[Rfam]
RNA sequence: ACAAAGGCUCUUUUCAGAGCCACCACAACACUCGAGAGGGUUAAAU
Numbered sequence: 001a002c003a004a005a006g007g008c009u010c011u012u013u014u015c016a017g018a019g020c021c022a023c024c025a026c027a028a029c030a031c032u033c034g035a036g037a038g039g040g041u042u043a044a045a046u
Stems, first nucleotide, its partner, number of pairs: 006021006
Shown here is a 46-nucleotide RNA sequence from Atractosteus spatula, a member of the family "Histone 3' UTR stem-loop". Gene Ontology term of the family: mRNA 3'-end processing by stem-loop binding and cleavage. Taxonomically the source falls in Atractosteus (Eukaryota, Opisthokonta, Craniata, Lepisosteidae). Rfam classes the family as a cis-regulatory element.